The family of this 132-nucleotide RNA sequence from Roseiflexus castenholzii is "SAM riboswitch aptamer (S box leader)".
Rfam's curators write: The SAM riboswitch is found upstream of a number of genes which code for proteins involved in methionine or cysteine biosynthesis in Gram-positive bacteria.
Lineage of the source: Bacteria > Chloroflexia > Chloroflexales > Roseiflexaceae > Roseiflexus castenholzii.
Nucleotides: 132
Base pairs, nucleotide, nucleotide: 001132002131003130004129005128006127007126008125013042014041015040016039017038021031022030023029025109026108027107028106043101044100045099046098048097049096050093105124110121111120112119113118
Number, partner (000 for none) and nucleotide at each position: 001132u002131g003130c004129u005128c006127a007126u008125c009000c010000a011000g012000a013042g014041g015040a016039g017038u018000g019000g020000a021031g022030g023029g024000a025109c026108c027107g028106g029023c030022c031021c032000g033000a034000c035000g036000a037000a038017g039016c040015u041014c042013c043101g044100c045099c046098a047000a048097c049096c050093c051000g052000u053000g054000g055000c056000c057000g058000c059000a060000g061000g062000u063000c064000g065000u066000g067000c068000a069000a070000u071000c072000g073000c074000c075000g076000c077000a078000c079000c080000g081000g082000c083000g084000c085000u086000c087000c088000g089000g090000c091000u092000a093050g094000a095000g096049g097048g098046u099045g100044g101043c102000a103000a104000u105124u106028c107027c108026g109025g110121c111120a112119g113118c114000g115000c116000a117000g118113g119112c120111u121110g122000g123000a124105a125008g126007a127006u128005g129004a130003g131002c132001g